[Rfam]
RNA sequence: UCACUGGUUAACGGUGGGGUCUGAAGGAAGCCAUAGGAAGUUAGAAGUACACAACUAACCGUAACCUGUUUCGUCGGUAUUGGUGGGCAAGCGCCCAAAAUAGCGCGAAGCCCGAUACUUAGUCAGACCAAUACUGUGCUUGAGGGUGGUAUUUCUAACAGGGAGUCAGU
Numbered sequence: 001u002c003a004c005u006g007g008u009u010a011a012c013g014g015u016g017g018g019g020u021c022u023g024a025a026g027g028a029a030g031c032c033a034u035a036g037g038a039a040g041u042u043a044g045a046a047g048u049a050c051a052c053a054a055c056u057a058a059c060c061g062u063a064a065c066c067u068g069u070u071u072c073g074u075c076g077g078u079a080u081u082g083g084u085g086g087g088c089a090a091g092c093g094c095c096c097a098a099a100a101u102a103g104c105g106c107g108a109a110g111c112c113c114g115a116u117a118c119u120u121a122g123u124c125a126g127a128c129c130a131a132u133a134c135u136g137u138g139c140u141u142g143a144g145g146g147u148g149g150u151a152u153u154u155c156u157a158a159c160a161g162g163g164a165g166u167c168a169g170u
Stems, first nucleotide, its partner, number of pairs: 001017006033170002037166001042157006050148003065145003075136002078133007085113004091106004

Group II catalytic intron D1-D4-3: a 170-nucleotide RNA from Pseudoalteromonas sp. NBT06-2. The source organism's lineage runs through Bacteria, Pseudomonadati, Alteromonadales, Pseudoalteromonadaceae and Pseudoalteromonas. It scores 50 bits against the family's covariance model. The pairing is the family consensus, mapped onto this sequence. From the family's description: Group II introns are found in rRNA, tRNA and mRNA of organelles in fungi, plants and protists, and also in mRNA in bacteria.